[Rfam]
RNA sequence: UCUCAAAGAUGAGCAAAGAAGGUAGUUUCUUUGGAAUCUAAAAAAACUACUUUCUUUGCUCAUCCUUGAGAA
Numbered sequence: 001u002c003u004c005a006a007a008g009a010u011g012a013g014c015a016a017a018g019a020a021g022g023u024a025g026u027u028u029c030u031u032u033g034g035a036a037u038c039u040a041a042a043a044a045a046a047c048u049a050c051u052u053u054c055u056u057u058g059c060u061c062a063u064c065c066u067u068g069a070g071a072a
Stems, first nucleotide, its partner, number of pairs: 001071005008064021
Description
This 72-nucleotide RNA sequence from Rhinopithecus roxellana belongs to the Rfam family "mir-1255 microRNA precursor family". NCBI's taxonomy places the organism under Eukaryota, Haplorrhini, Catarrhini, Cercopithecoidea, Rhinopithecus. The family's consensus secondary structure was predicted with RNAalifold. The match comes from Rfam's covariance-model search (73 bits).